[Rfam]
RNA sequence: GGGCCAGUGGUGCAAUGGAUAACACGUCUGACUGCAGAUCAGAAGAUUGUAGAUUCGACUCCUACUUGGCUUG
Numbered sequence: 001g002g003g004c005c006a007g008u009g010g011u012g013c014a015a016u017g018g019a020u021a022a023c024a025c026g027u028c029u030g031a032c033u034g035c036a037g038a039u040c041a042g043a044a045g046a047u048u049g050u051a052g053a054u055u056c057g058a059c060u061c062c063u064a065c066u067u068g069g070c071u072u073g
Base pairs, nucleotide, nucleotide: 001072002071003070004069005068006067007066010025011024012023027043028042029041030040031039049065050064051063052062
RNA: tRNA